Lysine riboswitch aptamer: a 177-nucleotide RNA from Clostridium putrefaciens. The family's consensus secondary structure is taken from published work. Gene Ontology term of the family: lysine biosynthetic process.
[Rfam]
RNA sequence: GGUUGUGAUAGAGGCGCGGUAUCUAAGAGUAACUUUACUAAGUUAAGCACUAUGAUGUAAGGUAAAAGGAGUUAUCGCCGAAGGGUAGAACUAAUGCUUUAAUGUUCUAUUUCUGGUUUUACAUAAAAUAUAUGUUUAAUUGUCGCAAAUUUUAAUUUGUGGAGAGCUAUCAUGCAA
Numbered sequence: 001g002g003u004u005g006u007g008a009u010a011g012a013g014g015c016g017c018g019g020u021a022u023c024u025a026a027g028a029g030u031a032a033c034u035u036u037a038c039u040a041a042g043u044u045a046a047g048c049a050c051u052a053u054g055a056u057g058u059a060a061g062g063u064a065a066a067a068g069g070a071g072u073u074a075u076c077g078c079c080g081a082a083g084g085g086u087a088g089a090a091c092u093a094a095u096g097c098u099u100u101a102a103u104g105u106u107c108u109a110u111u112u113c114u115g116g117u118u119u120u121a122c123a124u125a126a127a128a129u130a131u132a133u134g135u136u137u138a139a140u141u142g143u144c145g146c147a148a149a150u151u152u153u154a155a156u157u158u159g160u161g162g163a164g165a166g167c168u169a170u171c172a173u174g175c176a177a
Base pairs, nucleotide, nucleotide: 006172007171008170009169010168011167016078017077018076019075020074021073023071024070032063033062034061035060036059037058038057082114083113084112085111086109087108088107089106090105091104115141116140117139118138121135122134123133124132125131143162144161145160146159147158148157149156